[Rfam]
RNA: Small nucleolar RNA SNORD25
Organism: Populus tomentosa
RNA sequence: AGGAACUGUGAUGAGUCAAUACAGACCUGUAAUGACUUGCGGCAAUGAUCGCAACUCUUUAUGAACAUCUAAGGGACUGAGUUCUU
Numbered sequence: 001a002g003g004a005a006c007u008g009u010g011a012u013g014a015g016u017c018a019a020u021a022c023a024g025a026c027c028u029g030u031a032a033u034g035a036c037u038u039g040c041g042g043c044a045a046u047g048a049u050c051g052c053a054a055c056u057c058u059u060u061a062u063g064a065a066c067a068u069c070u071a072a073g074g075g076a077c078u079g080a081g082u083u084c085u086u
Stems, first nucleotide, its partner, number of pairs: 002085005